[Rfam]
RNA sequence: CAGACUGUUGCCAAUGAUGAAACAUAGUUAACUGAAAUUAAUGAUGUAAUUCAGUUCCUUCGUCACUACCACUGAGACAACAGAUGG
Numbered sequence: 001c002a003g004a005c006u007g008u009u010g011c012c013a014a015u016g017a018u019g020a021a022a023c024a025u026a027g028u029u030a031a032c033u034g035a036a037a038u039u040a041a042u043g044a045u046g047u048a049a050u051u052c053a054g055u056u057c058c059u060u061c062g063u064c065a066c067u068a069c070c071a072c073u074g075a076g077a078c079a080a081c082a083g084a085u086g087g
Stems, first nucleotide, its partner, number of pairs: 001087001003085001005083006012076001
Shown here is an 87-nucleotide RNA sequence from Edolisoma coerulescens, a member of the family "Small nucleolar RNA SNORD70".
Rfam links the family to the GO terms nucleolus and RNA processing.
It scores 57 bits against the family's covariance model.
The literature on the family includes a 2001 paper in EMBO J by Huttenhofer et al., "RNomics: an experimental approach that identifies 201 candidates for novel, small, non-messenger RNAs in mouse".
From the family's description: snoRNA HBII-234 belongs to the C/D family of snoRNAs. It is the human orthologue of the mouse MBII-234 and is predicted to guide 2'O-ribose methylation of the small 18S rRNA on position A512.